[Rfam]
RNA sequence: GGAUGUGAGGGCGAUCUGGCUGCGACAUCUGUCACCCCAUUGAUCGCCAGGGUUUGGUCCCUGUGUCCCCUUCCUCCCUCACCGCUCCAUGUGCGUCCCUCCCGAAGCUGCGCGCUCGGUCGAAGAGGACGACCAUCCCCGAUAGAGGAGGACCGUUCUUCUCGGUCAAGGGUAUACGAGUAGCUGCGCUCCCCUGCUAGAACCUCCAAACAAGCUCUCAAGGUCCAUUUGUAGGAGAACGUAGGGUAGUCAAGCUUCCAAGACUCCAGACACAUCCAAAUGAGGCGCUGCAUGUGGCAGUUUGCCUUUCUUU
Numbered sequence: 001g002g003a004u005g006u007g008a009g010g011g012c013g014a015u016c017u018g019g020c021u022g023c024g025a026c027a028u029c030u031g032u033c034a035c036c037c038c039a040u041u042g043a044u045c046g047c048c049a050g051g052g053u054u055u056g057g058u059c060c061c062u063g064u065g066u067c068c069c070c071u072u073c074c075u076c077c078c079u080c081a082c083c084g085c086u087c088c089a090u091g092u093g094c095g096u097c098c099c100u101c102c103c104g105a106a107g108c109u110g111c112g113c114g115c116u117c118g119g120u121c122g123a124a125g126a127g128g129a130c131g132a133c134c135a136u137c138c139c140c141g142a143u144a145g146a147g148g149a150g151g152a153c154c155g156u157u158c159u160u161c162u163c164g165g166u167c168a169a170g171g172g173u174a175u176a177c178g179a180g181u182a183g184c185u186g187c188g189c190u191c192c193c194c195u196g197c198u199a200g201a202a203c204c205u206c207c208a209a210a211c212a213a214g215c216u217c218u219c220a221a222g223g224u225c226c227a228u229u230u231g232u233a234g235g236a237g238a239a240c241g242u243a244g245g246g247u248a249g250u251c252a253a254g255c256u257u258c259c260a261a262g263a264c265u266c267c268a269g270a271c272a273c274a275u276c277c278a279a280a281u282g283a284g285g286c287g288c289u290g291c292a293u294g295u296g297g298c299a300g301u302u303u304g305c306c307u308u309u310c311u312u313u
Base pairs, nucleotide, nucleotide: 001088002087003086005082006081007080008079009078010077011076013073014072018070019069024067025066026065027064028063031060032057033056035052036051096151097150098148099147100146101145102119103118104117105116107115108114120142121141122140127138128137129136183255184254185253189249190248192246193245194244195243196242197241204237205236206235207234210232211231212230213229214228278313279312280311282308283307284306285305286304287301288300289299290298291297
This 313-nucleotide RNA sequence from Camelus ferus belongs to the Rfam family "7SK RNA". A search with the family's covariance model found it, with a score of 308 bits. Taxonomically the source falls in Camelus (Eukaryota, Bilateria, Chordata, Gnathostomata). The family is grouped with related families in Rfam's "7SK clan".